[Rfam]
RNA sequence: CGUGUAUGCUCCCGCCCCGUCAUUGGGGAGUAACCUCCUGCGGCGUUACGCCGCCGGGCUUACAUCAACACACUUGGCCGGUUGGGCCAUGGUGUAAGCGGCUUCAGUGCUUGGUGAGACCUUUGAUCAUGUCGUUCCGGUAUGGGCCGCGGACGGCGUGGUCAAUUGUGUCCUCCGGCCCUGAACGCU
Numbered sequence: 001c002g003u004g005u006a007u008g009c010u011c012c013c014g015c016c017c018c019g020u021c022a023u024u025g026g027g028g029a030g031u032a033a034c035c036u037c038c039u040g041c042g043g044c045g046u047u048a049c050g051c052c053g054c055c056g057g058g059c060u061u062a063c064a065u066c067a068a069c070a071c072a073c074u075u076g077g078c079c080g081g082u083u084g085g086g087c088c089a090u091g092g093u094g095u096a097a098g099c100g101g102c103u104u105c106a107g108u109g110c111u112u113g114g115u116g117a118g119a120c121c122u123u124u125g126a127u128c129a130u131g132u133c134g135u136u137c138c139g140g141u142a143u144g145g146g147c148c149g150c151g152g153a154c155g156g157c158g159u160g161g162u163c164a165a166u167u168g169u170g171u172c173c174u175c176c177g178g179c180c181c182u183g184a185a186c187g188c189u
Base pairs, nucleotide, nucleotide: 002055058099059098060097061096062095063094064093065092066091067090075089076088077087078086079085100189101188102187103185104184105183106182
RNA: Manganese Mn2+ riboswitch aptamer (yybP-ykoY)